[Rfam]
Glycine riboswitch aptamer: a 107-nucleotide RNA from Microbacterium caowuchunii.
RNA sequence: GCCACUCUGGAAAGCGAUCCUCCGGGAUCCGCCGACGGUGAAAACCGCAGCAUCCAUUCGCCCGGAUCAUGCGGUGAAACUCUCAGGCCGAUGACAGAGGGGGAGUU
Numbered sequence: 001g002c003c004a005c006u007c008u009g010g011a012a013a014g015c016g017a018u019c020c021u022c023c024g025g026g027a028u029c030c031g032c033c034g035a036c037g038g039u040g041a042a043a044a045c046c047g048c049a050g051c052a053u054c055c056a057u058u059c060g061c062c063c064g065g066a067u068c069a070u071g072c073g074g075u076g077a078a079a080c081u082c083u084c085a086g087g088c089c090g091a092u093g094a095c096a097g098a099g100g101g102g103g104a105g106u107u
Stems, first nucleotide, its partner, number of pairs: 002102002005099005016029004031088003034084002038082001040080001044075006